[Rfam]
RNA sequence: UCGCAUCGCCCUCCUUGGGCGUUUCCUCCCUAGACUCGGGCCGCUCAUUUUGAGCGGCUCUUUUUUUUGAUUCUU
Numbered sequence: 001u002c003g004c005a006u007c008g009c010c011c012u013c014c015u016u017g018g019g020c021g022u023u024u025c026c027u028c029c030c031u032a033g034a035c036u037c038g039g040g041c042c043g044c045u046c047a048u049u050u051u052g053a054g055c056g057g058c059u060c061u062u063u064u065u066u067u068u069g070a071u072u073c074u075u
Stems, first nucleotide, its partner, number of pairs: 008020004038060009
Dot-bracket structure: .......((((.....)))).................(((((((((.....)))))))))...............
RNA: Makes More Granules Regulator RNA (mmgR)
Organism: Rhodobacterales bacterium